[Rfam]
RNA sequence: AGACGCGACUGGCGCAUUGGGUGGGAUCGACCACCAGGGAGCGGAGGGAGCGGAGGCCGUGCGCCUGGGUCUUCGCC
Number, nucleotide and partner (000 for none) at each position: 001a000002g000003a000004c043005g042006c041007g000008a000009c038010u037011g065012g064013c063014g062015c061016a000017u000018u000019g000020g000021g034022u033023g032024g031025g000026a000027u000028c000029g000030a000031c024032c023033a022034c021035c000036a000037g010038g009039g000040a000041g006042c005043g004044g000045a000046g000047g000048g000049a000050g000051c000052g000053g000054a072055g071056g070057c069058c068059g000060u000061g015062c014063g013064c012065c011066u000067g000068g058069g057070u056071c055072u054073u000074c000075g000076c000077c000
Notes: Shown here is a 77-nucleotide RNA sequence from Nonomuraea cavernae, a member of the family "ZMP/ZTP riboswitch aptamer (pfl RNA motif)". The organism belongs to Nonomuraea, within Bacteria. The family's consensus secondary structure is taken from published work.